[Rfam]
Shown here is a 74-nucleotide RNA sequence from Salinimicrobium sediminis, a member of the family "Flavo-1 RNA". The family's consensus secondary structure is taken from published work.

RNA sequence: UUGGGGCAGGGAUUGCAGCGGCAUCUUUUUUGCCUCUUAAGGGCAAAAAAAUAUAGCGGAAAGCCUGCCUGCCG
Numbered sequence: 001u002u003g004g005g006g007c008a009g010g011g012a013u014u015g016c017a018g019c020g021g022c023a024u025c026u027u028u029u030u031u032g033c034c035u036c037u038u039a040a041g042g043g044c045a046a047a048a049a050a051a052u053a054u055a056g057c058g059g060a061a062a063g064c065c066u067g068c069c070u071g072c073c074g
Stems, first nucleotide, its partner, number of pairs: 009066003013062002018057002023052002028048008